The family of this 58-nucleotide RNA sequence from Nocardia brasiliensis is "msiK RNA".
It scores 47 bits against the family's covariance model.
By type it is a cis-regulatory element.
RNA sequence: GCGGGUCAACCCUUACUCGGAUCGUCCGGCACGUUCCUGCCGGUGAUGGGAAGUGAUU
Dot-bracket structure: .........((.(((..........((((((......)))))))))..))........